[Rfam]
Rfam assigns this 111-nucleotide RNA sequence from Hevea brasiliensis to the family "MIR394 microRNA precursor family". Taxonomically the source falls in Hevea (Eukaryota, Streptophytina, Tracheophyta, eudicotyledons).
RNA sequence: GUUGCAGAGCCAUUUGGCAUUCUGUCCACCUCCAUACAUAUCUAAGGGGUUAAUUCUUGGCAUAGUGUGUGAUUCUUGGAGGCGGCCAGCAUGCCAAACUGGCUCUGUAAA
Numbered sequence: 001g002u003u004g005c006a007g008a009g010c011c012a013u014u015u016g017g018c019a020u021u022c023u024g025u026c027c028a029c030c031u032c033c034a035u036a037c038a039u040a041u042c043u044a045a046g047g048g049g050u051u052a053a054u055u056c057u058u059g060g061c062a063u064a065g066u067g068u069g070u071g072a073u074u075c076u077u078g079g080a081g082g083c084g085g086c087c088a089g090c091a092u093g094c095c096a097a098a099c100u101g102g103c104u105c106u107g108u109a110a111a
Base pairs, nucleotide, nucleotide: 011101014097015096016095017094018093019092023088024087026085027084029082030081031080032079033078